[Rfam]
RNA sequence: GAAAUAUAAUGUGCUCAUCCGUAGACAGUAGGUGGCUAUGCCGUAACGUGAAAACAACCUACCGAGGUAGCUGACUAAUAGAUUACUAUGGUCUCUUCUUGUGUCUACGGGGAGGCCUUUAAUUAUUAUACA
Numbered sequence: 001g002a003a004a005u006a007u008a009a010u011g012u013g014c015u016c017a018u019c020c021g022u023a024g025a026c027a028g029u030a031g032g033u034g035g036c037u038a039u040g041c042c043g044u045a046a047c048g049u050g051a052a053a054a055c056a057a058c059c060u061a062c063c064g065a066g067g068u069a070g071c072u073g074a075c076u077a078a079u080a081g082a083u084u085a086c087u088a089u090g091g092u093c094u095c096u097u098c099u100u101g102u103g104u105c106u107a108c109g110g111g112g113a114g115g116c117c118u119u120u121a122a123u124u125a126u127u128a129u130a131c132a
Stems, first nucleotide, its partner, number of pairs: 028062006034042003090117009
Background
Rfam assigns this 132-nucleotide sequence from Clostridium bornimense to the family "Ribosomal protein L10 leader". Rfam describes the family as follows. This family is a putative r-protein leader autoregulatory structure found in B. subtilis and other low-GC Gram-positive bacteria. It is located in the 5' untranslated regions of mRNAs encoding ribosomal proteins L10 and L12 (rplJ-rplL). A Rho-independent transcription terminator structure that is probably involved in regulation is included at the 3' end. The source organism's lineage runs through Bacteria, Bacillota, Eubacteriales, Clostridiaceae and Clostridium. Rfam classes the family as a cis-regulatory leader.